The record is a 587-nucleotide part of an RNA from Pseudoxanthobacter soli, which matches "Bacterial large subunit ribosomal RNA" in Rfam.
[Rfam]
RNA sequence: CCUGCGGUUAGACGGAAAGACCCCGUGAACCUUUACUAUAGCUUUGCACUGGCAUUCGUGUCGUCAUGUGUAGGAUAGGUGGUAGGCUUUGAAGCCGGGGCGCCAGCCUUGGUGGAGCCAUCCUUGAAAUACCACCCUUGAAGAUAUGGAUGUCUAACUGCGGUGCGUCAUCCGCAUCCAGGACAGUGCAUGGUGGGUAGUUUGACUGGGGCGGUCGCCUCCCAAAGUGUAACGGAGGCGCGCGAAGGUGGGCUCAGAGCGGUCGGAAAUCGCUCGUUGAGUGCAAUGGCAUAAGCCUGCCUGACUGCGAGACUGACAAGUCGAGCAGAGACGAAAGUCGGCCAUAGUGAUCCGGUGGUCCCGCGUGGAAGGGCCAUCGCUCAACGGAUAAAAGGUACUCCGGGGAUAACAGGCUGAUGAUGCCCAAGAGUCCAUAUCGACGGCAUCGUUUGGCACCUCGAUGUCGACUCAUCACAUCCUGGGGCUGGAGCAGGUCCCAAGGGUUCGGCUGUUCGCCGAUUAAAGUGGUACGUGAGUUGGGUUCAGAACGUCGUGAGACAGUUUGGUCCCUAUCUGCCGUGGGUGUA
Numbered sequence: 001c002c003u004g005c006g007g008u009u010a011g012a013c014g015g016a017a018a019g020a021c022c023c024c025g026u027g028a029a030c031c032u033u034u035a036c037u038a039u040a041g042c043u044u045u046g047c048a049c050u051g052g053c054a055u056u057c058g059u060g061u062c063g064u065c066a067u068g069u070g071u072a073g074g075a076u077a078g079g080u081g082g083u084a085g086g087c088u089u090u091g092a093a094g095c096c097g098g099g100g101c102g103c104c105a106g107c108c109u110u111g112g113u114g115g116a117g118c119c120a121u122c123c124u125u126g127a128a129a130u131a132c133c134a135c136c137c138u139u140g141a142a143g144a145u146a147u148g149g150a151u152g153u154c155u156a157a158c159u160g161c162g163g164u165g166c167g168u169c170a171u172c173c174g175c176a177u178c179c180a181g182g183a184c185a186g187u188g189c190a191u192g193g194u195g196g197g198u199a200g201u202u203u204g205a206c207u208g209g210g211g212c213g214g215u216c217g218c219c220u221c222c223c224a225a226a227g228u229g230u231a232a233c234g235g236a237g238g239c240g241c242g243c244g245a246a247g248g249u250g251g252g253c254u255c256a257g258a259g260c261g262g263u264c265g266g267a268a269a270u271c272g273c274u275c276g277u278u279g280a281g282u283g284c285a286a287u288g289g290c291a292u293a294a295g296c297c298u299g300c301c302u303g304a305c306u307g308c309g310a311g312a313c314u315g316a317c318a319a320g321u322c323g324a325g326c327a328g329a330g331a332c333g334a335a336a337g338u339c340g341g342c343c344a345u346a347g348u349g350a351u352c353c354g355g356u357g358g359u360c361c362c363g364c365g366u367g368g369a370a371g372g373g374c375c376a377u378c379g380c381u382c383a384a385c386g387g388a389u390a391a392a393a394g395g396u397a398c399u400c401c402g403g404g405g406a407u408a409a410c411a412g413g414c415u416g417a418u419g420a421u422g423c424c425c426a427a428g429a430g431u432c433c434a435u436a437u438c439g440a441c442g443g444c445a446u447c448g449u450u451u452g453g454c455a456c457c458u459c460g461a462u463g464u465c466g467a468c469u470c471a472u473c474a475c476a477u478c479c480u481g482g483g484g485c486u487g488g489a490g491c492a493g494g495u496c497c498c499a500a501g502g503g504u505u506c507g508g509c510u511g512u513u514c515g516c517c518g519a520u521u522a523a524a525g526u527g528g529u530a531c532g533u534g535a536g537u538u539g540g541g542u543u544c545a546g547a548a549c550g551u552c553g554u555g556a557g558a559c560a561g562u563u564u565g566g567u568c569c570c571u572a573u574c575u576g577c578c579g580u581g582g583g584u585g586u587a
Stems, first nucleotide, its partner, number of pairs: 001583008010575003014570002022404004027400002029396005035201004042193002045190004051154012064141003068137001078136005085119003094113008158181003162178006204216004217239006240385001242342002248300006254280002257275006281290002305328004311322003330339003353379007361372002413454003417451001418448007428438002465540001466538004470532001471529005478503002481498006505519005546564004550559003
Pairs were carried over by alignment from the consensus structure, which is taken from published work.